[Rfam]
RNA sequence: UGCGACAACACGCUGAGUUUCCGGAAGGAAAACGGGGGAACCAUCCGCGGCGGGCGACCGGCGCAAGGGGUGAAUCCGCGGCAACACGCCGCGGUAGGGCGAAUCUCUGCGCCCGAAUCCGACAGCUAACCCCGUAAGCGUCAUCGGAGAGUGAAA
Numbered sequence: 001u002g003c004g005a006c007a008a009c010a011c012g013c014u015g016a017g018u019u020u021c022c023g024g025a026a027g028g029a030a031a032a033c034g035g036g037g038g039a040a041c042c043a044u045c046c047g048c049g050g051c052g053g054g055c056g057a058c059c060g061g062c063g064c065a066a067g068g069g070g071u072g073a074a075u076c077c078g079c080g081g082c083a084a085c086a087c088g089c090c091g092c093g094g095u096a097g098g099g100c101g102a103a104u105c106u107c108u109g110c111g112c113c114c115g116a117a118u119c120c121g122a123c124a125g126c127u128a129a130c131c132c133c134g135u136a137a138g139c140g141u142c143a144u145c146g147g148a149g150a151g152u153g154a155a156a
Stems, first nucleotide, its partner, number of pairs: 011140004018031005032135006042067001068120003076094004097114004
RNA: c-di-AMP riboswitch aptamer (ydaO/yuaA leader)
Organism: Cohnella candida